[Rfam]
RNA: Alphaproteobacterial ar14
RNA sequence: GAGCUUCGCGGGGCCUCUCCUCCUCCCAGGGCCCUCGCGAUCCGCCUGCGAACUCCUCCCGUCGCAGGCCUAUCCACGACGCCCGCCGGUUCCUCCCCCGGCGGGCGUUGUCG
Numbered sequence: 001g002a003g004c005u006u007c008g009c010g011g012g013g014c015c016u017c018u019c020c021u022c023c024u025c026c027c028a029g030g031g032c033c034c035u036c037g038c039g040a041u042c043c044g045c046c047u048g049c050g051a052a053c054u055c056c057u058c059c060c061g062u063c064g065c066a067g068g069c070c071u072a073u074c075c076a077c078g079a080c081g082c083c084c085g086c087c088g089g090u091u092c093c094u095c096c097c098c099c100g101g102c103g104g105g106c107g108u109u110g111u112c113g
Base pairs, nucleotide, nucleotide: 007039008038009037010035011034012033013032014031015030016029044069045068046067047066048065049064050063051062079108080107081106082105083104084103085102086101087100088099089098